[Rfam]
RNA sequence: CCAACGGCUCUUUUAAGAGCCACCCACUUUUUUCUCAAAAAGAACU
Number, nucleotide and partner (000 for none) at each position: 001c000002c000003a000004a000005c000006g021007g020008c019009u018010c017011u016012u000013u000014u000015a000016a011017g010018a009019g008020c007021c006022a000023c000024c000025c000026a000027c000028u000029u000030u000031u000032u000033u000034c000035u000036c000037a000038a000039a000040a000041a000042g000043a000044a000045c000046u000
RNA: Histone 3' UTR stem-loop
Organism: Nycticryphes semicollaris